RNA: mir-631 microRNA precursor family
Organism: Propithecus coquereli
RNA sequence: GGGGAGCCUGGUUAGAACUGGCUCAGGCCUCAGCCACAUAAGCUGAUGCACUGAGUCAGGGGCCAUGCUCUCC
Numbered sequence: 001g002g003g004g005a006g007c008c009u010g011g012u013u014a015g016a017a018c019u020g021g022c023u024c025a026g027g028c029c030u031c032a033g034c035c036a037c038a039u040a041a042g043c044u045g046a047u048g049c050a051c052u053g054a055g056u057c058a059g060g061g062g063c064c065a066u067g068c069u070c071u072c073c
Base pairs, nucleotide, nucleotide: 001073002072003071004070005069006068009065010064011063012062013061018059019058020057021056022055024053025052026051029048030046031045032044033043034042